[Rfam]
RNA: mir-14 microRNA precursor family
Organism: Harpegnathos saltator
RNA sequence: AGUGGGGGUGAGAAACUGGCUUGGCUAUGACGCAAAGCACAGUCAGUCUUUUUCUCUCUCCUAUC
Numbered sequence: 001a002g003u004g005g006g007g008g009u010g011a012g013a014a015a016c017u018g019g020c021u022u023g024g025c026u027a028u029g030a031c032g033c034a035a036a037g038c039a040c041a042g043u044c045a046g047u048c049u050u051u052u053u054c055u056c057u058c059u060c061c062u063a064u065c
Base pairs, nucleotide, nucleotide: 002064003063004062005061006060007059008058010056011055012054013053015051018048019047020046021045024043025042026041028039